[Rfam]
RNA: MIR812 microRNA precursor family
Organism: Oryza sativa
RNA sequence: AAAAAGACAAACCCUGAAUUUCCGUAUCCAAUAUUUGACCGUCCGUCUUAUUUGAAAAAUUAUGAAAAAAAUUAAAAAGACAAGUCACGCAUAAAGUAUUAAUCAUGCUUUAUCAUAUAACAAUAAUGAAAAUACUAAUUGUAAAAAAAAUUUAUAUAAGAUAGACAAUCAAAUGUUGGACACGAAAAUUCAAAAUUUGUCUUUUU
Numbered sequence: 001a002a003a004a005a006g007a008c009a010a011a012c013c014c015u016g017a018a019u020u021u022c023c024g025u026a027u028c029c030a031a032u033a034u035u036u037g038a039c040c041g042u043c044c045g046u047c048u049u050a051u052u053u054g055a056a057a058a059a060u061u062a063u064g065a066a067a068a069a070a071a072u073u074a075a076a077a078a079g080a081c082a083a084g085u086c087a088c089g090c091a092u093a094a095a096g097u098a099u100u101a102a103u104c105a106u107g108c109u110u111u112a113u114c115a116u117a118u119a120a121c122a123a124u125a126a127u128g129a130a131a132a133u134a135c136u137a138a139u140u141g142u143a144a145a146a147a148a149a150a151u152u153u154a155u156a157u158a159a160g161a162u163a164g165a166c167a168a169u170c171a172a173a174u175g176u177u178g179g180a181c182a183c184g185a186a187a188a189u190u191c192a193a194a195a196u197u198u199g200u201c202u203u204u205u206u
Stems, first nucleotide, its partner, number of pairs: 027180006034173005041166003045162007